[Rfam]
RNA sequence: AUAUUAGAUAGAGGCGCGAAAUGUUAAGAAACUAAUAUUGAUGAUGCUGCAACUAUGAUGUUAGUAGAGGGGCUUUCGCCGAAGGGGUAAAUAAUUGCAGUUAUUUAUUCUCUGGGUUUAUAGAGAACAUCUAUAAGACUGUCAUUAUCUUUUGAUAAUGGUGAGCUAUCAUUGUU
Numbered sequence: 001a002u003a004u005u006a007g008a009u010a011g012a013g014g015c016g017c018g019a020a021a022u023g024u025u026a027a028g029a030a031a032c033u034a035a036u037a038u039u040g041a042u043g044a045u046g047c048u049g050c051a052a053c054u055a056u057g058a059u060g061u062u063a064g065u066a067g068a069g070g071g072g073c074u075u076u077c078g079c080c081g082a083a084g085g086g087g088u089a090a091a092u093a094a095u096u097g098c099a100g101u102u103a104u105u106u107a108u109u110c111u112c113u114g115g116g117u118u119u120a121u122a123g124a125g126a127a128c129a130u131c132u133a134u135a136a137g138a139c140u141g142u143c144a145u146u147a148u149c150u151u152u153u154g155a156u157a158a159u160g161g162u163g164a165g166c167u168a169u170c171a172u173u174g175u176u
Stems, first nucleotide, its partner, number of pairs: 007170005016079006023073003032064006083113004087108008114140002117137008142161007
RNA: Lysine riboswitch aptamer